A member of the RNA family "Bacterial RNase P class A" from Maritimibacter alkaliphilus, 404 nucleotides long. Lineage of the source: Bacteria > Alphaproteobacteria > Rhodobacterales > Maritimibacter > Maritimibacter alkaliphilus. It is one of the family's seed sequences. Its family is annotated with ribonuclease P activity, tRNA processing and dimeric ribonuclease P complex in the Gene Ontology.
[Rfam]
RNA sequence: GCGGAUGGCCGGACGGUCGCCGGUGGCGGGGGCAACUCCGCUGCGGGAGGAAAGUCCGGACUCCACAAGGCAACGGUGCCGGGUAACGCCCGGCCGGGGCAACCCGAGGGAAAGCGCCACAGAGAACAAACCGCCCGGGUCAAUCGCUGACGCGAUGAACCCCGGGUAAGGCUGAAACGGUGGGGUAAGAGCCCACCGCGGGACGGGCAACCGGACCGGCACGGCAAGCCCCACCGGGAGCAAUGCCGAAUAGGGACCUCGCGCCCCGCGAGGGCAGGGCCGCCUUGGCCCGGAGGUCCGGGUUGGCAGCUCGAGCGGUUCGGUAACGGAUCGCCUAGAGGAAUGAUCGUCGGCACCGGGGCGACCCGGCGUCACAGAAUCCGGCUUACAGGCCGUCCGCGCAU
Numbered sequence: 001g002c003g004g005a006u007g008g009c010c011g012g013a014c015g016g017u018c019g020c021c022g023g024u025g026g027c028g029g030g031g032g033c034a035a036c037u038c039c040g041c042u043g044c045g046g047g048a049g050g051a052a053a054g055u056c057c058g059g060a061c062u063c064c065a066c067a068a069g070g071c072a073a074c075g076g077u078g079c080c081g082g083g084u085a086a087c088g089c090c091c092g093g094c095c096g097g098g099g100c101a102a103c104c105c106g107a108g109g110g111a112a113a114g115c116g117c118c119a120c121a122g123a124g125a126a127c128a129a130a131c132c133g134c135c136c137g138g139g140u141c142a143a144u145c146g147c148u149g150a151c152g153c154g155a156u157g158a159a160c161c162c163c164g165g166g167u168a169a170g171g172c173u174g175a176a177a178c179g180g181u182g183g184g185g186u187a188a189g190a191g192c193c194c195a196c197c198g199c200g201g202g203a204c205g206g207g208c209a210a211c212c213g214g215a216c217c218g219g220c221a222c223g224g225c226a227a228g229c230c231c232c233a234c235c236g237g238g239a240g241c242a243a244u245g246c247c248g249a250a251u252a253g254g255g256a257c258c259u260c261g262c263g264c265c266c267c268g269c270g271a272g273g274g275c276a277g278g279g280c281c282g283c284c285u286u287g288g289c290c291c292g293g294a295g296g297u298c299c300g301g302g303u304u305g306g307c308a309g310c311u312c313g314a315g316c317g318g319u320u321c322g323g324u325a326a327c328g329g330a331u332c333g334c335c336u337a338g339a340g341g342a343a344u345g346a347u348c349g350u351c352g353g354c355a356c357c358g359g360g361g362c363g364a365c366c367c368g369g370c371g372u373c374a375c376a377g378a379a380u381c382c383g384g385c386u387u388a389c390a391g392g393c394c395g396u397c398c399g400c401g402c403a404u
Base pairs, nucleotide, nucleotide: 001400002399003398004397005396006395007394008393009392010391011389012351013350014349015348016347017346018345020047021046023044024043025042026041027040028039029038030037052387053386054385056384057383058382059381060380061240062239063238064237069286070285074236075235076234077233078232079093080092081091082090083089094108095106096105097104098103109231110230114229115228116225117224118223131171132170133167134166135165136164137163138162139161179197180196181195182194183193184192198220199218200217201216204213205212206211244308245307246306247305254299255298256297257296258295259294277291278290279289280288281287315334316333317332318331319330320329321328322327